[Rfam]
RNA: Guanidine-I riboswitch aptamer
Organism: Sporolactobacillus shoreae
RNA sequence: CGAAAAGUCUUCUAGGGUUCCGUUAUUGAUUUUUAAUAAGUCUGGUCCGAGAGAGGACGAUCCUAAACAGGUUUACACGGAGGGAUAAAAGCCCGGGAGAA
Numbered sequence: 001c002g003a004a005a006a007g008u009c010u011u012c013u014a015g016g017g018u019u020c021c022g023u024u025a026u027u028g029a030u031u032u033u034u035a036a037u038a039a040g041u042c043u044g045g046u047c048c049g050a051g052a053g054a055g056g057a058c059g060a061u062c063c064u065a066a067a068c069a070g071g072u073u074u075a076c077a078c079g080g081a082g083g084g085a086u087a088a089a090a091g092c093c094c095g096g097g098a099g100a101a
Base pairs, nucleotide, nucleotide: 007058008057009056010055011054012053015048016047020045021044022042023039024038025037026036027035028034059074060073062071063070064069076096078099082094083093084092